A member of the RNA family "Cyanobacterial functional RNA 1" from Synechococcus sp. GFB01, 58 nucleotides long.
RNA sequence: GUGGGGGCUUUACGGCUCACACACUCCUCACACCUCCGGCCCGGCAUCCCCGGGCCUU
Numbered sequence: 001g002u003g004g005g006g007g008c009u010u011u012a013c014g015g016c017u018c019a020c021a022c023a024c025u026c027c028u029c030a031c032a033c034c035u036c037c038g039g040c041c042c043g044g045c046a047u048c049c050c051c052g053g054g055c056c057u058u
Stems, first nucleotide, its partner, number of pairs: 001022003005018004038056007
The source organism's lineage runs through Bacteria, Bacillati, Cyanophyceae, Synechococcaceae and Synechococcus. By type it is a small RNA. Pairs were carried over by alignment from the consensus structure, which is taken from published work. A search with the family's covariance model found it, with a score of 55 bits.